[Rfam]
RNA sequence: AAAAGAAGGGAACGGUGGCUGAUGAUGUAGUUCGAAACUCUCACAAUUUAUAUCACAGUGGCUGUUCUUUUUUGUU
Numbered sequence: 001a002a003a004a005g006a007a008g009g010g011a012a013c014g015g016u017g018g019c020u021g022a023u024g025a026u027g028u029a030g031u032u033c034g035a036a037a038c039u040c041u042c043a044c045a046a047u048u049u050a051u052a053u054c055a056c057a058g059u060g061g062c063u064g065u066u067c068u069u070u071u072u073u074g075u076u
Stems, first nucleotide, its partner, number of pairs: 004073002007070007016061001018059004023055002026052004